[Rfam]
RNA sequence: AAUAUAUGGCAGGGGAGCAGUAUGCUGAGAGGAGAUUUAAUCUCGACCCUUUAACCUGUUUGGAUAAUUCCAGCGUAGGGAGACACACAAGUACUUAA
Numbered sequence: 001a002a003u004a005u006a007u008g009g010c011a012g013g014g015g016a017g018c019a020g021u022a023u024g025c026u027g028a029g030a031g032g033a034g035a036u037u038u039a040a041u042c043u044c045g046a047c048c049c050u051u052u053a054a055c056c057u058g059u060u061u062g063g064a065u066a067a068u069u070c071c072a073g074c075g076u077a078g079g080g081a082g083a084c085a086c087a088c089a090a091g092u093a094c095u096u097a098a
Base pairs, nucleotide, nucleotide: 007085008084010082011050012049013048014047017025018024019023032044033043034042035041036040055079056078057077058076060073061072062071063070